[Rfam]
RNA sequence: UUGACGUAGGCUUUUAUUAGGUCAACUUGAUAAAAACUUGCGAAAAAAUCCCACUAACGUAACGCCUUGCUGUGUCAAUCACCGAGGCGGUACGUUUUUUU
Numbered sequence: 001u002u003g004a005c006g007u008a009g010g011c012u013u014u015u016a017u018u019a020g021g022u023c024a025a026c027u028u029g030a031u032a033a034a035a036a037c038u039u040g041c042g043a044a045a046a047a048a049u050c051c052c053a054c055u056a057a058c059g060u061a062a063c064g065c066c067u068u069g070c071u072g073u074g075u076c077a078a079u080c081a082c083c084g085a086g087g088c089g090g091u092a093c094g095u096u097u098u099u100u101u
Stems, first nucleotide, its partner, number of pairs: 002045001005042006012035008056096006063089007072082003
Shown here is a 101-nucleotide RNA from Holzapfeliella floricola, a member of the family "23S methyl RNA motif". Pairs were carried over by alignment from the consensus structure, which is taken from published work. On this family, see Weinberg et al., Nucleic Acids Res 2007: "Identification of 22 candidate structured RNAs in bacteria using the CMfinder comparative genomics pipeline". The source organism's lineage runs through Bacteria, Bacillati, Bacillota, Lactobacillales and Holzapfeliella floricola.